[Rfam]
RNA: Small nucleolar RNA SNORA63
RNA sequence: UUGCAGGAUAAGUUACUAAUCAGCUGUGGCAGUGCUGGUUGGUCGUUCCCCCUGCACAAAGCAACUUGUUUCUUACUAUCCCUGUAUGUCCGCAUCGCACGGCUUGCAGGGACGCUUAGUUUCAUACAU
Numbered sequence: 001u002u003g004c005a006g007g008a009u010a011a012g013u014u015a016c017u018a019a020u021c022a023g024c025u026g027u028g029g030c031a032g033u034g035c036u037g038g039u040u041g042g043u044c045g046u047u048c049c050c051c052c053u054g055c056a057c058a059a060a061g062c063a064a065c066u067u068g069u070u071u072c073u074u075a076c077u078a079u080c081c082c083u084g085u086a087u088g089u090c091c092g093c094a095u096c097g098c099a100c101g102g103c104u105u106g107c108a109g110g111g112a113c114g115c116u117u118a119g120u121u122u123c124a125u126a127c128a129u
Base pairs, nucleotide, nucleotide: 003055004054005053006052007051015043016042017041018040019039020038021037022036023035024034081110082109083108084107086105088103089102